The record is a 68-nucleotide RNA from Eptatretus burgeri, which matches "mir-24 microRNA precursor family" in Rfam.
The family has 63 seed sequences and 1,372 matches in Rfam 15.1.
Gene Ontology terms of the family: miRNA-mediated post-transcriptional gene silencing and RISC complex.
The base pairs follow the family's consensus structure, which was predicted with RNAalifold.
It scores 67 bits against the family's covariance model.
RNA sequence: GGCUUCUGUGCUACUGAGCUGAUUACAGUCAAUUAUAUACCACUGGCUCAGUUCAGCAGGAACAGAAG
Numbered sequence: 001g002g003c004u005u006c007u008g009u010g011c012u013a014c015u016g017a018g019c020u021g022a023u024u025a026c027a028g029u030c031a032a033u034u035a036u037a038u039a040c041c042a043c044u045g046g047c048u049c050a051g052u053u054c055a056g057c058a059g060g061a062a063c064a065g066a067a068g
Stems, first nucleotide, its partner, number of pairs: 003068004008063002011059002014056009026045004
Dot-bracket structure: ..((((.((.((.(((((((((...((((............))))..))))))))).))..)).))))